[Rfam]
RNA: RT-15 RNA
RNA sequence: CGGCGCCUGCUGUAUGACGGUCAAGGCCAUCAUGCCCGUGCGUUUUAUGAAUCCGGUCGAGCCGCUGGGCACCUCGCCCACCGCCAUGCGCACCACGGAUACCGGCGAGCACUUACAGCUCGAUCUAUGGUCCGGCGCAGUUUCCGGGCUGAUCGGUACUCAAAGCAAUUUGAGCCUUCGGCCUGGCGACGUAGAUAGCUCGGCAACGCG
Numbered sequence: 001c002g003g004c005g006c007c008u009g010c011u012g013u014a015u016g017a018c019g020g021u022c023a024a025g026g027c028c029a030u031c032a033u034g035c036c037c038g039u040g041c042g043u044u045u046u047a048u049g050a051a052u053c054c055g056g057u058c059g060a061g062c063c064g065c066u067g068g069g070c071a072c073c074u075c076g077c078c079c080a081c082c083g084c085c086a087u088g089c090g091c092a093c094c095a096c097g098g099a100u101a102c103c104g105g106c107g108a109g110c111a112c113u114u115a116c117a118g119c120u121c122g123a124u125c126u127a128u129g130g131u132c133c134g135g136c137g138c139a140g141u142u143u144c145c146g147g148g149c150u151g152a153u154c155g156g157u158a159c160u161c162a163a164a165g166c167a168a169u170u171u172g173a174g175c176c177u178u179c180g181g182c183c184u185g186g187c188g189a190c191g192u193a194g195a196u197a198g199c200u201c202g203g204c205a206a207c208g209c210g
Stems, first nucleotide, its partner, number of pairs: 004042003012035006019028003057203006063083002066080005087139005096134004102130002105124001106122005141189002144186009162171003